Rfam assigns this 99-nucleotide RNA sequence to the family "skipping-rope RNA". The sequence is in the family's curated seed alignment.
[Rfam]
RNA sequence: ACAGCCUGAGGACCGGAAAACCUGCCGCCGGCCCGCCUUGACAUAUUUUUUUAUCAAGGAAACAAGGUGGAUGUGGGGAACGCAGUCCCACCAGGCUGU
Numbered sequence: 001a002c003a004g005c006c007u008g009a010g011g012a013c014c015g016g017a018a019a020a021c022c023u024g025c026c027g028c029c030g031g032c033c034c035g036c037c038u039u040g041a042c043a044u045a046u047u048u049u050u051u052u053a054u055c056a057a058g059g060a061a062a063c064a065a066g067g068u069g070g071a072u073g074u075g076g077g078g079a080a081c082g083c084a085g086u087c088c089c090a091c092c093a094g095g096c097u098g099u
Stems, first nucleotide, its partner, number of pairs: 001099008011032001013031004022085004034066001036059006073091005
Source information: The family's RNA type in Rfam is small RNA.